[Rfam]
RNA sequence: CAGCGGGUGGAAGCCCCGCCCGGCGAAGUGCUCCCGCCGGAAGCUACCGGAGCAGCGGUGGAGGUAACGAAGCCGCUGAAGCCUCCGAGACGAUGCUUGCCACGAUAUACGGUGGCAGCGCGAGUGUGCAGGCCGUAACGCGA
Dot-bracket structure: ...................(((((...........))))).......(((((((((((....(....)....))))))....)))))..........((((((........))))))..(((...........))).......
Numbered sequence: 001c002a003g004c005g006g007g008u009g010g011a012a013g014c015c016c017c018g019c020c021c022g023g024c025g026a027a028g029u030g031c032u033c034c035c036g037c038c039g040g041a042a043g044c045u046a047c048c049g050g051a052g053c054a055g056c057g058g059u060g061g062a063g064g065u066a067a068c069g070a071a072g073c074c075g076c077u078g079a080a081g082c083c084u085c086c087g088a089g090a091c092g093a094u095g096c097u098u099g100c101c102a103c104g105a106u107a108u109a110c111g112g113u114g115g116c117a118g119c120g121c122g123a124g125u126g127u128g129c130a131g132g133c134c135g136u137a138a139c140g141c142g143a
Stems, first nucleotide, its partner, number of pairs: 020040005048087005053078006063068001098117006120136003